[Rfam]
RNA sequence: UAAUUGAGAGAUAAAAACACAGUUUCUGUUGGUAGUCAGAGCCUGCGUAUAUUGGCUAUUAGGUAUUUAUGCGUAGCAGUAACCUGCCCUCCUGGGGUUGUCCGUUCUCUUUAAUAAUAAA
Numbered sequence: 001u002a003a004u005u006g007a008g009a010g011a012u013a014a015a016a017a018c019a020c021a022g023u024u025u026c027u028g029u030u031g032g033u034a035g036u037c038a039g040a041g042c043c044u045g046c047g048u049a050u051a052u053u054g055g056c057u058a059u060u061a062g063g064u065a066u067u068u069a070u071g072c073g074u075a076g077c078a079g080u081a082a083c084c085u086g087c088c089c090u091c092c093u094g095g096g097g098u099u100g101u102c103c104g105u106u107c108u109c110u111u112u113a114a115u116a117a118u119a120a121a
Stems, first nucleotide, its partner, number of pairs: 004113001006111006022042002025040004043076009086098004